[Rfam]
RNA sequence: ACGUCAGCUUUAGCUCACUGGUUACUUCACAGAUUCAACUUGGUUGUACUUUCGGACAUGUCUCACCAUGGGCGCUGAUGGCGUUUUU
Numbered sequence: 001a002c003g004u005c006a007g008c009u010u011u012a013g014c015u016c017a018c019u020g021g022u023u024a025c026u027u028c029a030c031a032g033a034u035u036c037a038a039c040u041u042g043g044u045u046g047u048a049c050u051u052u053c054g055g056a057c058a059u060g061u062c063u064c065a066c067c068a069u070g071g072g073c074g075c076u077g078a079u080g081g082c083g084u085u086u087u088u
Stems, first nucleotide, its partner, number of pairs: 002083005013073004019068003027065001029063001
RNA: Vault RNA